[Rfam]
RNA sequence: UAAACUAAAUAUGAACAAGCGGUAAAUCGUGAGAUUUACGCAGCCGGGUCCUCAAGUGUGAGGACAGCAGACCACUGCAUCUAAUUGUAGAGUGCGUGCCUGUGAGACAGUA
Numbered sequence: 001u002a003a004a005c006u007a008a009a010u011a012u013g014a015a016c017a018a019g020c021g022g023u024a025a026a027u028c029g030u031g032a033g034a035u036u037u038a039c040g041c042a043g044c045c046g047g048g049u050c051c052u053c054a055a056g057u058g059u060g061a062g063g064a065c066a067g068c069a070g071a072c073c074a075c076u077g078c079a080u081c082u083a084a085u086u087g088u089a090g091a092g093u094g095c096g097u098g099c100c101u102g103u104g105a106g107a108c109a110g111u112a
Base pairs, nucleotide, nucleotide: 012109013108016106019044020043022039023038024037025036026035027034048065049064050063051062052061053060054059067103068102069101070100072098
Record summary:
The family of this 112-nucleotide sequence from Streptococcus minor is "NiCo (Nickel/Cobalt) riboswitch aptamer". It scores 37 bits against the family's covariance model. Gene Ontology terms of the family: metal ion homeostasis and cobalt ion binding. For this family Rfam cites "Bacterial riboswitches cooperatively bind Ni(2+) or Co(2+) ions and control expression of heavy metal transporters" (Furukawa et al., Mol Cell, 2015). The family is grouped with related families in Rfam's "NiCo_riboswitches". NCBI's taxonomy places the organism under Bacteria, Bacilli, Lactobacillales, Streptococcaceae, Streptococcus.